[Rfam]
RNA sequence: UUGCCUUAAACUAAUGAGUAAGGAAAACAAUGUACCCGGUCGAUGCCGGGUGCCGCGCACAGUCUGCGCUUAGAUUUUUGGAGGGAGAUAGGCUGGUCUGGCGUUGACGCUGCCUACAUUGCAGAACUCGCCUGUGCUGGCCUCCUCU
Number, nucleotide and partner (000 for none) at each position: 001u000002u000003g000004c023005c022006u021007u020008a019009a000010a000011c000012u000013a000014a000015u000016g000017a000018g000019u008020a007021a006022g005023g004024a000025a000026a000027a000028c000029a000030a000031u000032g053033u052034a051035c050036c049037c048038g047039g046040u000041c000042g000043a000044u000045g000046c039047c038048g037049g036050g035051u034052g033053c032054c000055g069056c068057g067058c066059a000060c000061a000062g000063u000064c000065u000066g058067c057068g056069c055070u000071u000072a000073g000074a000075u000076u000077u000078u000079u000080g000081g000082a000083g000084g148085g147086a146087g145088a000089u000090a143091g142092g141093c140094u139095g138096g137097u000098c134099u000100g000101g131102c130103g129104u000105u000106g000107a000108c000109g000110c124111u123112g122113c121114c000115u000116a000117c000118a000119u000120u000121g113122c112123a111124g110125a000126a000127c000128u000129c103130g102131c101132c000133u000134g098135u000136g000137c096138u095139g094140g093141c092142c091143u090144c000145c087146u086147c085148u084
RNA: U12 minor spliceosomal RNA